[Rfam]
RNA sequence: AUUUGCAUUACAGGGUGAGUUCUCCGUUGGCAGGUAGCUAGCCACUAUAGUAGUAUAUGAUAUGAAUUAAUUAUGUUACACACAUUAAUUAUGCAAUUCAUAUUUCUUUCUUAGUGUGCAAUCUGCCAAAGGAGAUUUGCCCAGUGAUUCUCCA
Dot-bracket structure: ....(.(((.(.(((((((..((((..((((((((.....................................................................................))))))))..)))).))))))).).))).)....